[Rfam]
Nucleotides: 053
Base pairs, nucleotide, nucleotide: 016045017044018043019042020041021040022039025036026035027034028033
Number, partner (000 for none) and nucleotide at each position: 001000c002000u003000g004000u005000c006000c007000a008000a009000g010000g011000a012000u013000a014000g015000a016045c017044g018043c019042u020041g021040g022039c023000c024000g025036g026035c027034g028033a029000g030000g031000u032000u033028u034027c035026g036025c037000c038000c039022g040021c041020c042019g043018g044017c045016g046000c047000g048000a049000u050000u051000g052000u053000c
ffh sRNA: a 53-nucleotide RNA sequence from Sphingobium nicotianae. Pairs were carried over by alignment from the consensus structure, which is taken from published work. The literature on the family includes a 2009 paper in BMC Genomics by Meyer et al., "Identification of candidate structured RNAs in the marine organism 'Candidatus Pelagibacter ubique'". A search with the family's covariance model found it, with a score of 43 bits. Lineage of the source: Bacteria > Pseudomonadati > Pseudomonadota > Sphingomonadales > Sphingobium.